[Rfam]
RNA: RT-18 RNA
RNA sequence: UGCCCCUUGGCAAAAAUUAGUCGCUCUGGGUUGGCUUAGUAGGUUAAUUCUCGAAAGGUCGGCAGGCAAAUAUAAG
Numbered sequence: 001u002g003c004c005c006c007u008u009g010g011c012a013a014a015a016a017u018u019a020g021u022c023g024c025u026c027u028g029g030g031u032u033g034g035c036u037u038a039g040u041a042g043g044u045u046a047a048u049u050c051u052c053g054a055a056a057g058g059u060c061g062g063c064a065g066g067c068a069a070a071u072a073u074a075a076g
Base pairs, nucleotide, nucleotide: 001012002011003010004009020067021066022065030063031062032061033060034059035058036057042052043051